[Rfam]
RNA sequence: ACUGGGAGUCGUGGCGUGCUCCUGUAAUCCAGCUACUUGGAGGUCGGGACUUGAGGAUGGUCUGAGGUCGGGGGUCCUGUGGCAGAGUGGCCCACGUUGACUGGGUGUCCGCACUAAGCUUGCCACCGACAUGGUCAGCCUGGAGGAGUCCGGGGUGACCAGGUCGUCUAAGGAGGGGCGAACCGGGCCAGGGGGGAAACCCAGCAGCCAAAAGUCCCCGUGGUGAGCAGUAGUGGGAUAGCGCUCGGGAGUGGGAGUUCUGUCAUAGCCCGACCAAUAUGAAUGGACCAAGUUCUUU
Numbered sequence: 001a002c003u004g005g006g007a008g009u010c011g012u013g014g015c016g017u018g019c020u021c022c023u024g025u026a027a028u029c030c031a032g033c034u035a036c037u038u039g040g041a042g043g044u045c046g047g048g049a050c051u052u053g054a055g056g057a058u059g060g061u062c063u064g065a066g067g068u069c070g071g072g073g074g075u076c077c078u079g080u081g082g083c084a085g086a087g088u089g090g091c092c093c094a095c096g097u098u099g100a101c102u103g104g105g106u107g108u109c110c111g112c113a114c115u116a117a118g119c120u121u122g123c124c125a126c127c128g129a130c131a132u133g134g135u136c137a138g139c140c141u142g143g144a145g146g147a148g149u150c151c152g153g154g155g156u157g158a159c160c161a162g163g164u165c166g167u168c169u170a171a172g173g174a175g176g177g178g179c180g181a182a183c184c185g186g187g188c189c190a191g192g193g194g195g196g197a198a199a200c201c202c203a204g205c206a207g208c209c210a211a212a213a214g215u216c217c218c219c220g221u222g223g224u225g226a227g228c229a230g231u232a233g234u235g236g237g238a239u240a241g242c243g244c245u246c247g248g249g250a251g252u253g254g255g256a257g258u259u260c261u262g263u264c265a266u267a268g269c270c271c272g273a274c275c276a277a278u279a280u281g282a283a284u285g286g287a288c289c290a291a292g293u294u295c296u297u298u
Base pairs, nucleotide, nucleotide: 001044002043003042004023005022006021007020008019009018028041029040030039046296047295048294049293050292051291052290053289058285059284061282062281066275067274068273069272070271071270072269077268078267079266080265081264082263083262084261085260086259087258088257091255092254093253094252095251097249101248102247103246104245105244106243107242108241109237110236112235113234114233115232116231118228119227120226121225122224123223124222125221126220127166128165129164130163132161133160134159135158136157137156139154140153141152142151143150144149167173168172175218176217177216178215179214186209187208188207193202194201195200
The record is a 298-nucleotide RNA sequence from Laodelphax striatellus, which matches "Metazoan signal recognition particle RNA" in Rfam. The signal recognition particle (SRP) is a universally conserved ribonucleoprotein. It is involved in the co-translational targeting of proteins to membranes. The source organism's lineage runs through Eukaryota, Mandibulata, Pancrustacea, Delphacidae and Laodelphax. By type it is a non-coding RNA gene.